[Rfam]
RNA sequence: UCUGUGAAUCGUCAUAAAAUGAAAGUAGUUAGUAAUGCAAAGUGAUAUUGCAACCAAAUCAGACGGGAUGAAGCAGAAA
Numbered sequence: 001u002c003u004g005u006g007a008a009u010c011g012u013c014a015u016a017a018a019a020u021g022a023a024a025g026u027a028g029u030u031a032g033u034a035a036u037g038c039a040a041a042g043u044g045a046u047a048u049u050g051c052a053a054c055c056a057a058a059u060c061a062g063a064c065g066g067g068a069u070g071a072a073g074c075a076g077a078a079a
Base pairs, nucleotide, nucleotide: 001077002076003075004074005073009066010065011064012063013062020061021060022059028054029053030052032051033050034049035048036047037046